Nuclear RNase P: a 330-nucleotide RNA sequence from Magnusiomyces paraingens. Rfam classes the family as a ribozyme. The match comes from Rfam's covariance-model search (54 bits). Ribonuclease P (RNase P) is a ubiquitous endoribonuclease, found in archaea, bacteria and eukarya as well as chloroplasts and mitochondria. Its best characterised activity is the generation of mature 5'-ends of tRNAs by cleaving the 5'-leader elements of precursor-tRNAs. Cellular RNase Ps are ribonucleoproteins. RNA from bacterial RNase Ps retains its catalytic activity in the absence of the protein subunit, i.e. it is a ribozyme. The family is grouped with related families in Rfam's "RNaseP clan". The source organism's lineage runs through Eukaryota, Opisthokonta, saccharomyceta, Dipodascomycetes and Magnusiomyces.
[Rfam]
RNA sequence: UUCCGUGCUAGACCGCGCGUACCUUCUUACUUAAGACUUGCGAUUUAUACUAUUUAGUAAAAGUUUCAAGUCACAAUGAAGGUGGGAAAUUCGGUGAAUCACUUCUCUCAACAAUUAUAUGUUCCCCUGAGGGUUCUGCACGGCCACGUGGAAACGCGGAGCAGCGUCAUCAGAAAGAACGGAUUUUGUGGUGUAUUUCUUUACACCAUAAAAUUCAUGGGAUAUUGGCGUUGCGGGAGAUUGGGUCCUUAGAGGGGACCUCUUAAGUGCAAUGCGCAGUCUACUUCAUUAAUCAUGGAGUAGAACUCGAUACCGAUCACUAGUGCGGAA
Numbered sequence: 001u002u003c004c005g006u007g008c009u010a011g012a013c014c015g016c017g018c019g020u021a022c023c024u025u026c027u028u029a030c031u032u033a034a035g036a037c038u039u040g041c042g043a044u045u046u047a048u049a050c051u052a053u054u055u056a057g058u059a060a061a062a063g064u065u066u067c068a069a070g071u072c073a074c075a076a077u078g079a080a081g082g083u084g085g086g087a088a089a090u091u092c093g094g095u096g097a098a099u100c101a102c103u104u105c106u107c108u109c110a111a112c113a114a115u116u117a118u119a120u121g122u123u124c125c126c127c128u129g130a131g132g133g134u135u136c137u138g139c140a141c142g143g144c145c146a147c148g149u150g151g152a153a154a155c156g157c158g159g160a161g162c163a164g165c166g167u168c169a170u171c172a173g174a175a176a177g178a179a180c181g182g183a184u185u186u187u188g189u190g191g192u193g194u195a196u197u198u199c200u201u202u203a204c205a206c207c208a209u210a211a212a213a214u215u216c217a218u219g220g221g222a223u224a225u226u227g228g229c230g231u232u233g234c235g236g237g238a239g240a241u242u243g244g245g246u247c248c249u250u251a252g253a254g255g256g257g258a259c260c261u262c263u264u265a266a267g268u269g270c271a272a273u274g275c276g277c278a279g280u281c282u283a284c285u286u287c288a289u290u291a292a293u294c295a296u297g298g299a300g301u302a303g304a305a306c307u308c309g310a311u312a313c314c315g316a317u318c319a320c321u322a323g324u325g326c327g328g329a330a
Stems, first nucleotide, its partner, number of pairs: 001330004007324003012280002015277004021083005035072006092315005102239004124133003144159002147156003162233007182216002281303009